[Rfam]
RNA: Small Cajal body-specific RNA 7
Nucleotides: 312
Base pairs, nucleotide, nucleotide: 001311002310003309004308178210179209180208181207182206183205185203187198188197190195
Number, partner (000 for none) and nucleotide at each position: 001311u002310g003309g004308a005000a006000g007000u008000g009000a010000u011000g012000a013000a014000a015000u016000a017000g018000a019000g020000a021000u022000a023000a024000u025000u026000g027000g028000a029000u030000g031000u032000g033000u034000c035000u036000u037000u038000g039000a040000a041000u042000g043000g044000a045000g046000u047000g048000u049000g050000u051000g052000u053000g054000a055000u056000g057000a058000a059000u060000g061000g062000a063000a064000u065000u066000u067000a068000a069000a070000c071000c072000a073000a074000g075000u076000c077000a078000g079000a080000c081000u082000g083000g084000g085000g086000g087000u088000g089000g090000g091000g092000g093000a094000u095000g096000g097000g098000g099000a100000g101000u102000g103000a104000g105000u106000g107000u108000g109000c110000a111000u112000g113000u114000g115000c116000a117000g118000g119000c120000a121000g122000g123000g124000c125000u126000u127000g128000a129000a130000a131000c132000g133000g134000g135000g136000g137000c138000g139000c140000u141000g142000a143000c144000a145000a146000u147000g148000c149000c150000g151000u152000g153000c154000u155000g156000a157000u158000u159000c160000c161000g162000g163000a164000g165000u166000g167000c168000a169000u170000c171000u172000g173000a174000g175000g176000c177000g178210u179209g180208u181207u182206g183205u184000u185203a186000a187198g188197u189000u190195c191000u192000g193000g194000g195190g196000u197188g198187c199000c200000a201000a202000u203185u204000c205183a206182c207181a208180a209179c210178a211000c212000u213000g214000c215000c216000g217000a218000u219000g220000a221000u222000u223000a224000a225000a226000g227000c228000c229000c230000a231000g232000a233000a234000c235000a236000a237000g238000c239000c240000c241000a242000c243000c244000g245000a246000g247000a248000c249000a250000a251000g252000c253000c254000a255000a256000a257000g258000c259000a260000u261000c262000c263000u264000a265000a266000a267000u268000c269000u270000c271000u272000a273000a274000c275000a276000g277000g278000u279000u280000c281000a282000u283000u284000a285000a286000u287000g288000g289000a290000a291000g292000u293000g294000a295000u296000c297000c298000u299000g300000u301000g302000a303000u304000c305000u306000g307000a308004u309003c310002c311001g312000a